The record is an 88-nucleotide RNA sequence from Kineobactrum salinum, which matches "c-di-GMP-I riboswitch aptamer" in Rfam.
The match comes from Rfam's covariance-model search (82 bits).
[Rfam]
Nucleotides: 088
Stems, first nucleotide, its partner, number of pairs: 012037002017032006040082004045078003048073003055067004
Number, partner (000 for none) and nucleotide at each position: 001000a002000u003000c004000a005000u006000u007000g008000u009000a010000a011000g012037g013036c014000a015000a016000a017032u018031c019030c020029g021028u022027c023000g024000a025000a026000a027022g028021g029020c030019g031018g032017a033000g034000a035000c036013g037012c038000a039000a040082a041081g042080u043079c044000a045078c046077c047076g048073g049072u050071c051000u052000a053000a054000a055067g056066g057065g058064a059000u060000a061000g062000u063000c064058u065057c066056c067055c068000c069000a070000u071050g072049a073048u074000a075000g076047c077046g078045g079043g080042a081041u082040u083000g084000c085000c086000a087000g088000a